[Rfam]
RNA: Small nucleolar RNA Z103
RNA sequence: AUGGAAGUGAUGAUUAUUUCCCCAGAUGAUCGACGCUGAACAAACUGAGCGUUUUUAUUUCUCUUUGAAUUUAUUAAAAGAGAAUUCAAGCUAGGAAACUGAUCCAU
Dot-bracket structure: (((((.................................................................................................)))))